[Rfam]
RNA sequence: CCCGUGGUCCGGGCCCCUCUGGCGAGCGCUCAGCCGGCGCUCUCGCGAUGUCGGACCGUUCAU
Numbered sequence: 001c002c003c004g005u006g007g008u009c010c011g012g013g014c015c016c017c018u019c020u021g022g023c024g025a026g027c028g029c030u031c032a033g034c035c036g037g038c039g040c041u042c043u044c045g046c047g048a049u050g051u052c053g054g055a056c057c058g059u060u061c062a063u
Stems, first nucleotide, its partner, number of pairs: 006057007022046005028040002
The family of this 63-nucleotide RNA from Phreatobacter aquaticus is "terC RNA". It is annotated as a cis-regulatory element. NCBI's taxonomy places the organism under Bacteria, Pseudomonadota, Alphaproteobacteria, Phreatobacteraceae, Phreatobacter.